[Rfam]
Nucleotides: 095
Stems, first nucleotide, its partner, number of pairs: 001091001003089006015026003028076003031072002035070003041063009
Number, partner (000 for none) and nucleotide at each position: 001091a002000g003089c004088c005087u006086c007085u008084g009000g010000a011000g012000a013000g014000a015026c016025u017024c018000a019000g020000a021000u022000g023000a024017g025016a026015g027000c028076a029075c030074c031072g032071a033000a034000g035070g036069a037068g038000c039000a040000a041063g042062g043061u044060u045059u046058a047057a048056u049055u050000u051000u052000u053000a054000u055049a056048a057047u058046u059045a060044a061043a062042u063041u064000g065000a066000a067000a068037c069036u070035c071032u072031c073000a074030g075029g076028u077000a078000a079000a080000a081000g082000g083000a084008c085007a086006g087005g088004g089003g090000a091001u092000a093000a094000a095000g